[Rfam]
RNA sequence: GCCAUCCUUCGGGGCGGGGCGAAAUUCCCCACCGGCGGUGAUCACGCUCCGGCCACCCACAAGGCCCGCGUGUCAGCCCGCGAAGCCGCGCCUAGAUGCAGUGCAGGCCUGGCCCGACCUGGUGAAAUUCCAGAGCCGACGGUCACAGUCCGGAUGAGAGAAGGAGGAA
Numbered sequence: 001g002c003c004a005u006c007c008u009u010c011g012g013g014g015c016g017g018g019g020c021g022a023a024a025u026u027c028c029c030c031a032c033c034g035g036c037g038g039u040g041a042u043c044a045c046g047c048u049c050c051g052g053c054c055a056c057c058c059a060c061a062a063g064g065c066c067c068g069c070g071u072g073u074c075a076g077c078c079c080g081c082g083a084a085g086c087c088g089c090g091c092c093u094a095g096a097u098g099c100a101g102u103g104c105a106g107g108c109c110u111g112g113c114c115c116g117a118c119c120u121g122g123u124g125a126a127a128u129u130c131c132a133g134a135g136c137c138g139a140c141g142g143u144c145a146c147a148g149u150c151c152g153g154a155u156g157a158g159a160g161a162a163g164g165a166g167g168a169a
Stems, first nucleotide, its partner, number of pairs: 003167001005165006017029003031149002033138002035081004085113004119133004140152003
Rfam assigns this 169-nucleotide RNA from Deinococcus hopiensis to the family "FMN riboswitch aptamer (RFN element)". Lineage of the source: Bacteria > Thermotogati > Deinococci > Deinococcaceae > Deinococcus hopiensis. A search with the family's covariance model found it, with a score of 95 bits.